[Rfam]
RNA sequence: CAACCUCUGGCAAGAGAUGUGAAUGUUG
Numbered sequence: 001c002a003a004c005c006u007c008u009g010g011c012a013a014g015a016g017a018u019g020u021g022a023a024u025g026u027u028g
Stems, first nucleotide, its partner, number of pairs: 001028004008023001010020003
RNA: L19-Flavobacteria ribosomal protein leader